Rfam assigns this 122-nucleotide RNA from Lysobacter sp. A03 to the family "SAM riboswitch aptamer (S box leader)".
Taxonomically the source falls in Lysobacter (Bacteria, Pseudomonadota, Gammaproteobacteria, Lysobacteraceae).
It scores 71 bits against the family's covariance model.
Gene Ontology term of the family: regulation of gene expression.
RNA sequence: CACCCAUCGAGACCGGCAGAGGGACAGGCCCUUUGAAGCCGGGGCAACCCAUCGCAGCGCAAGCCGCGAACGGGUGCCAAAUCCUGCGGCGCCGCGCUCCAGCGGUGGCCGGAAGAUGGUUG
Number, nucleotide and partner (000 for none) at each position: 001c122002a121003c000004c119005c118006a117007u116008c115009g000010a000011g000012a000013c042014c041015g040016g039017c038018a000019g000020a000021g031022g030023g029024a000025c086026a085027g084028g083029c023030c022031c021032u000033u000034u000035g000036a000037a000038g017039c016040c015041g014042g013043g078044g077045c076046a075047a000048c074049c073050c000051a000052u069053c068054g067055c000056a000057g000058c000059g000060c000061a000062a000063g000064c000065c000066g000067c054068g053069a052070a000071c000072g000073g049074g048075u046076g045077c044078c043079a000080a000081a000082u114083c028084c027085u026086g025087c111088g110089g109090c108091g000092c000093c000094g000095c000096g000097c000098u000099c000100c000101a000102g000103c000104g000105g000106u000107g000108g090109c089110c088111g087112g000113a000114a082115g008116a007117u006118g005119g004120u000121u002122g001